[Rfam]
RNA sequence: UCCCAAGGAGCGUUGCAGCGCGGUCGUUCUUCUCCGUCGAAGCGACCUCGUCAGGCUUGGGCUCGCAACGACGCUCGCCUGAC
Numbered sequence: 001u002c003c004c005a006a007g008g009a010g011c012g013u014u015g016c017a018g019c020g021c022g023g024u025c026g027u028u029c030u031u032c033u034c035c036g037u038c039g040a041a042g043c044g045a046c047c048u049c050g051u052c053a054g055g056c057u058u059g060g061g062c063u064c065g066c067a068a069c070g071a072c073g074c075u076c077g078c079c080u081g082a083c
Stems, first nucleotide, its partner, number of pairs: 002061005019050002022047007
Annotation
Rfam assigns this 83-nucleotide RNA from Variovorax sp. MHTC-1 to the family "SAH (S-adenosyl-L-homocysteine) riboswitch aptamer". It scores 47 bits against the family's covariance model. A reference for the family is Wang et al. (2008), "Riboswitches that sense S-adenosylhomocysteine and activate genes involved in coenzyme recycling", Mol Cell. The organism belongs to Variovorax, within Bacteria.